[Rfam]
Rfam assigns this 113-nucleotide sequence from Jiangella aurantiaca to the family "SAM (S-adenosyl methionine) riboswitch aptamer". The match comes from Rfam's covariance-model search (110 bits). Its family is annotated with S-adenosylmethionine metabolic process and regulation of gene expression in the Gene Ontology.
RNA sequence: GGUCAUGAGUGCCAGUGCCAAGCCCCGGCUCGCUGGCCGGCAACCCUCCUCCGCGGUGGGGUGCCCCGGGUGACGACCUGGCCGGCUCGACCCCGAGCCGGCAAGCGCGGACC
Number, nucleotide and partner (000 for none) at each position: 001g078002g077003u076004c075005a000006u000007g000008a000009g038010u000011g037012c036013c035014a034015g033016u032017g000018c000019c000020a000021a030022g029023c000024c000025c000026c000027g000028g000029c022030u021031c000032g016033c015034u014035g013036g012037c011038c009039g065040g064041c063042a000043a000044c061045c060046c059047u000048c056049c055050u000051c000052c000053g000054c000055g049056g048057u000058g000059g046060g045061g044062u000063g041064c040065c039066c000067c000068g000069g000070g000071u000072g000073a000074c000075g004076a003077c002078c001079u000080g000081g102082c101083c100084g099085g098086c097087u096088c095089g094090a000091c000092c000093c000094c089095g088096a087097g086098c085099c084100g083101g082102c081103a000104a000105g000106c000107g000108c000109g000110g000111a000112c000113c000